[Rfam]
RNA: PyrR binding site
RNA sequence: AAAACUUUUAAUCUAGUCCAGAGAGGCUAGCAAGGUUGUGAACAAGAAAUAUUAUCCUUAAAAGUUACUGACAGAACUGUCAGUAAGUUGCUAAGGCAUUUUAGGACACAUCUGCUAGGUUUCUGGCAGAUGUUUUUGCUU
Numbered sequence: 001a002a003a004a005c006u007u008u009u010a011a012u013c014u015a016g017u018c019c020a021g022a023g024a025g026g027c028u029a030g031c032a033a034g035g036u037u038g039u040g041a042a043c044a045a046g047a048a049a050u051a052u053u054a055u056c057c058u059u060a061a062a063a064g065u066u067a068c069u070g071a072c073a074g075a076a077c078u079g080u081c082a083g084u085a086a087g088u089u090g091c092u093a094a095g096g097c098a099u100u101u102u103a104g105g106a107c108a109c110a111u112c113u114g115c116u117a118g119g120u121u122u123c124u125g126g127c128a129g130a131u132g133u134u135u136u137u138g139c140u141u
Base pairs, nucleotide, nucleotide: 003037004036005035006034007033008032013030014029015028016027017026018025062089063088065086066085067084068083069082070081071080072079073078105136106135108133109132110131111130112129113128114127115126116125117124118123